[Rfam]
RNA sequence: UGCUUGCCUGCUGGAGAGAGGCGUCGCCGCGCCGGCCCCGUGCCCGCCGCGCCGCCCACCGAAGGAGCAAACGCCCAGCGCCGUGCCACGGGGGUGGCGGCCGCCGCGUGAAUCUCUCAGGUAAAGCGGACAGCAGGUGUGCC
Numbered sequence: 001u002g003c004u005u006g007c008c009u010g011c012u013g014g015a016g017a018g019a020g021g022c023g024u025c026g027c028c029g030c031g032c033c034g035g036c037c038c039c040g041u042g043c044c045c046g047c048c049g050c051g052c053c054g055c056c057c058a059c060c061g062a063a064g065g066a067g068c069a070a071a072c073g074c075c076c077a078g079c080g081c082c083g084u085g086c087c088a089c090g091g092g093g094g095u096g097g098c099g100g101c102c103g104c105c106g107c108g109u110g111a112a113u114c115u116c117u118c119a120g121g122u123a124a125a126g127c128g129g130a131c132a133g134c135a136g137g138u139g140u141g142c143c
Stems, first nucleotide, its partner, number of pairs: 006138008020056004058122003061118002065116003071109004
The record is a 143-nucleotide RNA from Tepidimonas taiwanensis, which matches "Glycine riboswitch aptamer" in Rfam.
The organism belongs to Tepidimonas, within Bacteria.
Rfam describes the family as follows. This family represents the bacterial glycine riboswitch. Glycine riboswitches usually consist of two metabolite-binding aptamers domains with similar structures in tandem. The aptamers cooperatively bind glycine to regulate the expression of downstream genes. In Bacillus subtilis, this riboswitch is found upstream of the gcvT operon which controls glycine degradation.